The family of this 52-nucleotide sequence from Equus caballus is "mir-1302 microRNA precursor family". A search with the family's covariance model found it, with a score of 64 bits. The organism belongs to Equus, within Eukaryota. The base pairs follow the family's consensus structure, which was predicted with WAR. A reference for the family is Morin et al. (2008), "Application of massively parallel sequencing to microRNA profiling and discovery in human embryonic stem cells", Genome Res.
RNA sequence: UUUUUAGUAUAAGUAUGUCCCGCAUAAUAUUUGGGACACACUUAUGCUAAAA
Numbered sequence: 001u002u003u004u005u006a007g008u009a010u011a012a013g014u015a016u017g018u019c020c021c022g023c024a025u026a027a028u029a030u031u032u033g034g035g036a037c038a039c040a041c042u043u044a045u046g047c048u049a050a051a052a
Base pairs, nucleotide, nucleotide: 006048007047008046009045010044011043012042014040016038018036019035020034021033022031